[Rfam]
RNA sequence: AUAAUGAUACUUGCGCAUAGUCGAGGUUAGGUCCCAGAGUGCGCCCCGGUCGCUGACGGGGAGGUGAAAUUCCUAUGA
Numbered sequence: 001a002u003a004a005u006g007a008u009a010c011u012u013g014c015g016c017a018u019a020g021u022c023g024a025g026g027u028u029a030g031g032u033c034c035c036a037g038a039g040u041g042c043g044c045c046c047c048g049g050u051c052g053c054u055g056a057c058g059g060g061g062a063g064g065u066g067a068a069a070u071u072c073c074u075a076u077g078a
Stems, first nucleotide, its partner, number of pairs: 012075001013044006045061003049057003062074003

Record summary:
The record is a 78-nucleotide sequence from Thermotalea metallivorans, which matches "pemK RNA" in Rfam. The organism belongs to Thermotalea, within Bacteria. The family's RNA type in Rfam is cis-regulatory element.